Shown here is a 362-nucleotide RNA from Tractidigestivibacter scatoligenes, a member of the family "Bacterial RNase P class A".
[Rfam]
RNA sequence: GAAGUGGGCCAGACGAUCGCGAGGCCGGCGGCUUGCCGCAGGCCAUGAGGAAAGUCCGGGCUCCACAGGGCAGGAAGCUGGCUAACGGCCAGGCGGGGUGACCCGACGGAAAGCGCCGCAGAAAAGAAGACUCCCGCUGCCCGCCUCGGCGGGUGAGAGAAAAGCUGAAACGGUGGUGUAAGAGACCACCAGCGUCGUGGCAACACGACGGCUUGGCAAGCCCCUUCCGGAGCAAACGCAAAUAGGAGCGCUAUGGUGUGGCCCGCACCGCGCUCGGGUUGCGCGCUAGAGGGCGCCGGUAACGGCGUUCGUAGAUAAAUGAUCGUCCACGACAGAACCCGGCUCAUAGGCCCACUUCGCAC
Numbered sequence: 001g002a003a004g005u006g007g008g009c010c011a012g013a014c015g016a017u018c019g020c021g022a023g024g025c026c027g028g029c030g031g032c033u034u035g036c037c038g039c040a041g042g043c044c045a046u047g048a049g050g051a052a053a054g055u056c057c058g059g060g061c062u063c064c065a066c067a068g069g070g071c072a073g074g075a076a077g078c079u080g081g082c083u084a085a086c087g088g089c090c091a092g093g094c095g096g097g098g099u100g101a102c103c104c105g106a107c108g109g110a111a112a113g114c115g116c117c118g119c120a121g122a123a124a125a126g127a128a129g130a131c132u133c134c135c136g137c138u139g140c141c142c143g144c145c146u147c148g149g150c151g152g153g154u155g156a157g158a159g160a161a162a163a164g165c166u167g168a169a170a171c172g173g174u175g176g177u178g179u180a181a182g183a184g185a186c187c188a189c190c191a192g193c194g195u196c197g198u199g200g201c202a203a204c205a206c207g208a209c210g211g212c213u214u215g216g217c218a219a220g221c222c223c224c225u226u227c228c229g230g231a232g233c234a235a236a237c238g239c240a241a242a243u244a245g246g247a248g249c250g251c252u253a254u255g256g257u258g259u260g261g262c263c264c265g266c267a268c269c270g271c272g273c274u275c276g277g278g279u280u281g282c283g284c285g286c287u288a289g290a291g292g293g294c295g296c297c298g299g300u301a302a303c304g305g306c307g308u309u310c311g312u313a314g315a316u317a318a319a320u321g322a323u324c325g326u327c328c329a330c331g332a333c334a335g336a337a338c339c340c341g342g343c344u345c346a347u348a349g350g351c352c353c354a355c356u357u358c359g360c361a362c
Stems, first nucleotide, its partner, number of pairs: 001358010011347001012327007020047002023044004028039003053344002056342005061232004068264004073228005078092005093107001094105004108223002113221002115217003131164002134159001141155001172190006192212001193210007237283003246275006255269005291310008
It is annotated as a ribozyme.